Nucleotides: 108
Base pairs, nucleotide, nucleotide: 001107002106003105004104005103011097012096013095014094015093016092017091018090019089020088021087022086023085024084025083026082027081028080029069030068031067033065034064049059050058051057052056
Number, partner (000 for none) and nucleotide at each position: 001107u002106u003105a004104g005103a006000g007000a008000a009000c010000g011097u012096u013095u014094u015093a016092g017091c018090u019089a020088u021087u022086g023085a024084a025083c026082u027081g028080u029069u030068u031067u032000g033065u034064c035000c036000c037000u038000c039000u040000c041000g042000g043000u044000c045000a046000a047000a048000g049059a050058g051057c052056a053000a054000u055000u056052u057051g058050u059049u060000c061000u062000u063000u064034g065033a066000g067031a068030g069029a070000u071000a072000g073000g074000g075000a076000c077000a078000a079000a080028a081027c082026a083025g084024u085023u086022c087021a088020a089019u090018a091017g092016u093015u094014a095013a096012a097011a098000c099000g100000u101000u102000a103005u104004c105003u106002a107001a108000c